This 109-nucleotide RNA sequence from Plutella xylostella belongs to the Rfam family "mir-8517 microRNA precursor family". Rfam links the family to the GO terms miRNA-mediated post-transcriptional gene silencing and RISC complex.
[Rfam]
RNA sequence: UUACUGGACGCUUUAGUUAUUUAACUGUUUUGUCACUCUCUGCCAAAGAACAAAAUUGUUCUCUGUUAGAGAGUGACAAAACAGUUCAUUAGCUAAAGCAUCCAGUAAC
Numbered sequence: 001u002u003a004c005u006g007g008a009c010g011c012u013u014u015a016g017u018u019a020u021u022u023a024a025c026u027g028u029u030u031u032g033u034c035a036c037u038c039u040c041u042g043c044c045a046a047a048g049a050a051c052a053a054a055a056u057u058g059u060u061c062u063c064u065g066u067u068a069g070a071g072a073g074u075g076a077c078a079a080a081a082c083a084g085u086u087c088a089u090u091a092g093c094u095a096a097a098g099c100a101u102c103c104a105g106u107a108a109c
Stems, first nucleotide, its partner, number of pairs: 001108006011098009021088001023086006029070004034065002049060004

The organism belongs to Plutella, within Eukaryota.